[Rfam]
RNA sequence: CGGCAACGAUGAUGACAAGAGAUGUUGCUGUCUGUAACGCUCUGCUGCUGCGUGGAGACACCAGUCCCUCUAAACUGACGUUGCCG
Numbered sequence: 001c002g003g004c005a006a007c008g009a010u011g012a013u014g015a016c017a018a019g020a021g022a023u024g025u026u027g028c029u030g031u032c033u034g035u036a037a038c039g040c041u042c043u044g045c046u047g048c049u050g051c052g053u054g055g056a057g058a059c060a061c062c063a064g065u066c067c068c069u070c071u072a073a074a075c076u077g078a079c080g081u082u083g084c085c086g
Stems, first nucleotide, its partner, number of pairs: 001086007